[Rfam]
RNA sequence: CGUUCUUAAAUAAGUGAAUCUUUCAGAGCAAUGGGCCAUGACCGGGGCACUUAAGGGUCCCGUUGAAACGCCACCACGAAAUCUCGAACG
Numbered sequence: 001c002g003u004u005c006u007u008a009a010a011u012a013a014g015u016g017a018a019u020c021u022u023u024c025a026g027a028g029c030a031a032u033g034g035g036c037c038a039u040g041a042c043c044g045g046g047g048c049a050c051u052u053a054a055g056g057g058u059c060c061c062g063u064u065g066a067a068a069c070g071c072c073a074c075c076a077c078g079a080a081a082u083c084u085c086g087a088a089c090g
Stems, first nucleotide, its partner, number of pairs: 001090004
This 90-nucleotide RNA from Trichonephila clavipes belongs to the Rfam family "Z6 small nucleolar RNA". Rfam links the family to the GO terms nucleolus and RNA processing. Rfam 15.1 lists 212 matches to the family in 144 species. A search with the family's covariance model found it, with a score of 36 bits.